[Rfam]
RNA sequence: ACGACCCUCGGGGGAGAGAGCGGCGGAUCCGGCCGUUUCCUGAACUUCCCCGGAUCGCGGCGCCGCCGAAGGAGCAACCGCCCCCGGAAACUCUCAGGCGCCCGUACCCCGAGGUGAGG
Numbered sequence: 001a002c003g004a005c006c007c008u009c010g011g012g013g014g015a016g017a018g019a020g021c022g023g024c025g026g027a028u029c030c031g032g033c034c035g036u037u038u039c040c041u042g043a044a045c046u047u048c049c050c051c052g053g054a055u056c057g058c059g060g061c062g063c064c065g066c067c068g069a070a071g072g073a074g075c076a077a078c079c080g081c082c083c084c085c086g087g088a089a090a091c092u093c094u095c096a097g098g099c100g101c102c103c104g105u106a107c108c109c110c111g112a113g114g115u116g117a118g119g
Stems, first nucleotide, its partner, number of pairs: 006114008020063003065099003068095002072093003078086001